[Rfam]
RNA sequence: UGCUGGACUUGGCCGGGAAGCCAGGCACUUCCUGUUACCCGAAGCCUAAAUGCGGGGGCGACAGCCGGUUGAGGGCAACCAGGCCUCCAUAGGGUCCCUGUGGAAGCAAUGAAUCUCUGUCCUCCUUGGUCCUGGGUUUAUGCGUGCAUUUCCAAAGGGAGAUGCAUGCAUAAUCUGUCCGGUGAACCCGCCAGGCCCGGAAGGGAGCAACGGUGGCUGGAACCAAGGAUGCUAGGAGGGUGCGGGGACGAGUGGAAGCAGGGGGCAGCCCUAUGGGCGCCUGGUCCGAUUCCGGCGUGUCCAGCA
Dot-bracket structure: ((((((((.(.(((((((((.......))))))....((((...........))))))).)..(((((....((((..(...((.((((((((((((((((....((......(((((((((((((.(((((((((.((((((((((((((((....)))))))))))))))).)..((((((....(((.....(((....))).....)))..)))))).))).)))).).))))))..)))))))...))....)))))))....))))))))).))..)))))....)))))..))))))))